[Rfam]
RNA sequence: CACUUCGGUCCGAAGUCGAUGGGUUAUCUGCCUUGUCUUCUGCUUGCAGAAGGCCUCCGGUUUCCUUGUGAAACCAAAAACUGUUCUUCAGACGAACAAACCGCGUUCCCAAAAGAAUGCAAAACCCUUCCCAUCGGCAUCAACUUGACCGUUGU
Numbered sequence: 001c002a003c004u005u006c007g008g009u010c011c012g013a014a015g016u017c018g019a020u021g022g023g024u025u026a027u028c029u030g031c032c033u034u035g036u037c038u039u040c041u042g043c044u045u046g047c048a049g050a051a052g053g054c055c056u057c058c059g060g061u062u063u064c065c066u067u068g069u070g071a072a073a074c075c076a077a078a079a080a081c082u083g084u085u086c087u088u089c090a091g092a093c094g095a096a097c098a099a100a101c102c103g104c105g106u107u108c109c110c111a112a113a114a115g116a117a118u119g120c121a122a123a124a125c126c127c128u129u130c131c132c133a134u135c136g137g138c139a140u141c142a143a144c145u146u147g148a149c150c151g152u153u154g155u
Stems, first nucleotide, its partner, number of pairs: 002155002006151005012141002015138009036053007061073004103120006
This 155-nucleotide sequence from Caenorhabditis latens belongs to the Rfam family "Nematode sRNA ceN72-3_ceN74-2". It scores 103 bits against the family's covariance model. On this family, see Jia et al., BMC Mol Biol 2007: "Systematic identification of non-coding RNA 2,2,7-trimethylguanosine cap structures in Caenorhabditis elegans". Lineage of the source: Eukaryota > Rhabditida > Rhabditina > Rhabditoidea > Caenorhabditis.